Annotation
mraW RNA: a 117-nucleotide RNA sequence from Arthrobacter sp. CAU 1506. The match comes from Rfam's covariance-model search (56 bits). Rfam classes the family as a cis-regulatory element. NCBI's taxonomy places the organism under Bacteria, Bacillati, Actinomycetes, Micrococcales, Arthrobacter.
[Rfam]
RNA sequence: CGGAUGUUCUUGGAUGAGAUCUCCAGCCGCCCGGCAGGUUCAUCCUGGCUCACUUCCCCGGAGCCAGGCGGGGCAGGCCAGGCGCGGAUGGGGAUCUGGUCCAAGGACCUUCGGCCU
Numbered sequence: 001c002g003g004a005u006g007u008u009c010u011u012g013g014a015u016g017a018g019a020u021c022u023c024c025a026g027c028c029g030c031c032c033g034g035c036a037g038g039u040u041c042a043u044c045c046u047g048g049c050u051c052a053c054u055u056c057c058c059c060g061g062a063g064c065c066a067g068g069c070g071g072g073g074c075a076g077g078c079c080a081g082g083c084g085c086g087g088a089u090g091g092g093g094a095u096c097u098g099g100u101c102c103a104a105g106g107a108c109c110u111u112c113g114g115c116c117u
Base pairs, nucleotide, nucleotide: 010104011103012102013101014100015099018096019095021093022092023091024090025089027087028086029085030084031081033079034078039073040072041071044068045067046066047065048064049063050062051061